[Rfam]
Shown here is a 103-nucleotide sequence from Gossypium mustelinum, a member of the family "Small nucleolar RNA snoR31/Z110/Z27". The base pairs follow the family's consensus structure, which was predicted with PFOLD. From the family's description: This family contains several related snoRNAs including R31, Z27 and Z110. The organism belongs to Gossypium, within Eukaryota. The family has 8 seed sequences and 571 matches in Rfam 15.1. The match comes from Rfam's covariance-model search (52 bits).

RNA sequence: AUCAUCAAAUGAUGAAUUUGGAAAAAAAAUCUUAGGACACCUUCCUACAUAGCUUUAAUAUUAAAGCUAUGGAUGAGAAGAACAUUUCCUUUCUGAUGAUGAG
Number, nucleotide and partner (000 for none) at each position: 001a000002u102003c101004a100005u099006c098007a097008a000009a000010u000011g000012a000013u000014g000015a000016a000017u000018u000019u000020g000021g000022a000023a000024a000025a000026a000027a000028a000029a000030u000031c000032u000033u000034a000035g000036g000037a000038c000039a000040c000041c000042u000043u000044c000045c052046u051047a000048c000049a000050u000051a046052g045053c000054u000055u000056u000057a000058a000059u000060a000061u000062u000063a000064a000065a000066g000067c000068u000069a000070u000071g000072g000073a000074u000075g000076a000077g000078a000079a000080g000081a000082a000083c000084a000085u000086u000087u000088c000089c000090u000091u000092u000093c000094u000095g000096a000097u007098g006099a005100u004101g003102a002103g000